[Rfam]
RNA sequence: GGGUGAUGUCUACUGUACCCUUAUCAUCGUCGUAGGCACUCGGUCACGCUGAAUGGUUGCAGCCGAUGCAACCUUAGCUGUAUUGCGAUUGUGUGAUACGGGGGAUUAAUGGUAUUAGU
Numbered sequence: 001g002g003g004u005g006a007u008g009u010c011u012a013c014u015g016u017a018c019c020c021u022u023a024u025c026a027u028c029g030u031c032g033u034a035g036g037c038a039c040u041c042g043g044u045c046a047c048g049c050u051g052a053a054u055g056g057u058u059g060c061a062g063c064c065g066a067u068g069c070a071a072c073c074u075u076a077g078c079u080g081u082a083u084u085g086c087g088a089u090u091g092u093g094u095g096a097u098a099c100g101g102g103g104g105a106u107u108a109a110u111g112g113u114a115u116u117a118g119u
Stems, first nucleotide, its partner, number of pairs: 001020004007038007039102004043097007053074001055073007077086002105119005

This 119-nucleotide sequence from Paenibacillus popilliae belongs to the Rfam family "epsC RNA". Lineage of the source: Bacteria > Bacillota > Paenibacillaceae > Paenibacillus > Paenibacillus popilliae. It scores 52 bits against the family's covariance model.